RNA sequence: AUUACCUUUUAAGUUAGUCCUGUGAGGCUAGUAAAGGAUUAUGGUAGGCACUCUGCUUGGAGUGUAUCAUUAUGUCUGCUAUAGACCUUUUGCCACAGGCAAAAGGUCUUUUUUGU
Numbered sequence: 001a002u003u004a005c006c007u008u009u010u011a012a013g014u015u016a017g018u019c020c021u022g023u024g025a026g027g028c029u030a031g032u033a034a035a036g037g038a039u040u041a042u043g044g045u046a047g048g049c050a051c052u053c054u055g056c057u058u059g060g061a062g063u064g065u066a067u068c069a070u071u072a073u074g075u076c077u078g079c080u081a082u083a084g085a086c087c088u089u090u091u092g093c094c095a096c097a098g099g100c101a102a103a104a105g106g107u108c109u110u111u112u113u114u115g116u
Stems, first nucleotide, its partner, number of pairs: 005037005014031006041070004048065007081111001083109012